[Rfam]
RNA sequence: UUUUAGCCCCGAUGGAGGCGAUAUCCUUUUUAUGGCUUUUUCUGCCAUAAAAAGAUAAAGCCGAGAGCGGGAUUAGCU
Number, nucleotide and partner (000 for none) at each position: 001u000002u000003u000004u000005a000006g000007c000008c000009c070010c069011g068012a000013u066014g000015g000016a000017g000018g061019c060020g000021a000022u000023a056024u055025c054026c000027u000028u000029u051030u050031u049032a048033u047034g046035g045036c044037u000038u000039u000040u000041u000042c000043u000044g036045c035046c034047a033048u032049a031050a030051a029052a000053a000054g025055a024056u023057a000058a000059a000060g019061c018062c000063g000064a000065g000066a013067g000068c011069g010070g009071g000072a000073u000074u000075a000076g000077c000078u000

A member of the RNA family "Flavo-1 RNA" from Flavobacterium bizetiae, 78 nucleotides long.
The family's RNA type in Rfam is small RNA.
It scores 66 bits against the family's covariance model.
Lineage of the source: Bacteria > Pseudomonadati > Flavobacteriia > Flavobacteriaceae > Flavobacterium.
The base pairs follow the family's consensus structure, which is taken from published work.